[Rfam]
RNA sequence: GCAACUACUGAUUGUCCAAACGCAAUUCUUGUUCGUUAUUAGCGUCCUUUCAAGAACUGUGAGUGGACAUCAUUAGUUAU
Numbered sequence: 001g002c003a004a005c006u007a008c009u010g011a012u013u014g015u016c017c018a019a020a021c022g023c024a025a026u027u028c029u030u031g032u033u034c035g036u037u038a039u040u041a042g043c044g045u046c047c048u049u050u051c052a053a054g055a056a057c058u059g060u061g062a063g064u065g066g067a068c069a070u071c072a073u074u075a076g077u078u079a080u
Base pairs, nucleotide, nucleotide: 003078004077005076006075007074009072010071011070012069014068015067016066017065018064021061022060023059024058026056027055028054029053030052031051

The family of this 80-nucleotide sequence from Varroa destructor is "mir-219 microRNA precursor family". A reference for the family is Lai et al. (2003), "Computational identification of Drosophila microRNA genes", Genome Biol. The family's consensus secondary structure was predicted with RNAalifold. The organism belongs to Varroa, within Eukaryota. Gene Ontology terms of the family: miRNA-mediated post-transcriptional gene silencing and RISC complex. The match comes from Rfam's covariance-model search (70 bits).